[Rfam]
RNA: Pseudoknot of upstream pseudoknot domain (UPD) of the 3'UTR
Organism: Hubei sediment virgavirus 1
RNA sequence: AGUGUUUUGUGGUCCACUUAAAUAGAACCAC
Numbered sequence: 001a002g003u004g005u006u007u008u009g010u011g012g013u014c015c016a017c018u019u020a021a022a023u024a025g026a027a028c029c030a031c
Base pairs, nucleotide, nucleotide: 001018002017003016004015009031010030011029012028013027014025